[Rfam]
RNA: Pyrrolysine insertion sequence 1
Organism: Methanomethylovorans hollandica
RNA sequence: UAGGGACCAGAGACUUCCCUGUCCGCUCAGGGAAAUAUAGCUGCAGACUGUGCCGGUGGCAUGAAAAGCAGUGACAGUCACGAGGUCUCACAGCUCAAUG
Numbered sequence: 001u002a003g004g005g006a007c008c009a010g011a012g013a014c015u016u017c018c019c020u021g022u023c024c025g026c027u028c029a030g031g032g033a034a035a036u037a038u039a040g041c042u043g044c045a046g047a048c049u050g051u052g053c054c055g056g057u058g059g060c061a062u063g064a065a066a067a068g069c070a071g072u073g074a075c076a077g078u079c080a081c082g083a084g085g086u087c088u089c090a091c092a093g094c095u096c097a098a099u100g
Stems, first nucleotide, its partner, number of pairs: 010089008040060005046054001
Dot-bracket structure: .........((((((((......................(((((.(.......).))))).....................))))))))...........